[Rfam]
RNA sequence: GACCUGUCAUCGACGGAACUUCAGUGGGCGGGAACGGGGGAACCAGAACGCCGGCCCGAGCGCCGGCUAGGGGUGAGGUCGCCUCACGCGACGGGCCGCCUUCAGGCCUAAUCCGACAGCUAACCUCGCAGGCGGUUGAAGGACCGAGGA
Numbered sequence: 001g002a003c004c005u006g007u008c009a010u011c012g013a014c015g016g017a018a019c020u021u022c023a024g025u026g027g028g029c030g031g032g033a034a035c036g037g038g039g040g041a042a043c044c045a046g047a048a049c050g051c052c053g054g055c056c057c058g059a060g061c062g063c064c065g066g067c068u069a070g071g072g073g074u075g076a077g078g079u080c081g082c083c084u085c086a087c088g089c090g091a092c093g094g095g096c097c098g099c100c101u102u103c104a105g106g107c108c109u110a111a112u113c114c115g116a117c118a119g120c121u122a123a124c125c126u127c128g129c130a131g132g133c134g135g136u137u138g139a140a141g142g143a144c145c146g147a148g149g150a
Stems, first nucleotide, its partner, number of pairs: 004032002035128005044070001071114003079091004094108004

c-di-AMP riboswitch aptamer (ydaO/yuaA leader): a 150-nucleotide RNA sequence from Paractinoplanes abujensis. Pairs were carried over by alignment from the consensus structure. Rfam describes the family as follows. This family represents a conserved RNA structure found upstream of the ydaO and yuaA genes in Bacillus subtilis and related genes in other bacteria. The ydaO/yuaA element is thought to act as a genetic 'off' switch for the ydaO and yuaA genes in its native state. It is believed that the element may be triggered during osmotic shock leading to activation of ydaO, a predicted amino acid transporter gene, and members of the yuaA-yubG operon which code for KtrA and KtrB K+ transporters. For this family Rfam cites "New RNA motifs suggest an expanded scope for riboswitches in bacterial genetic control" (Barrick et al., Proc Natl Acad Sci U S A, 2004).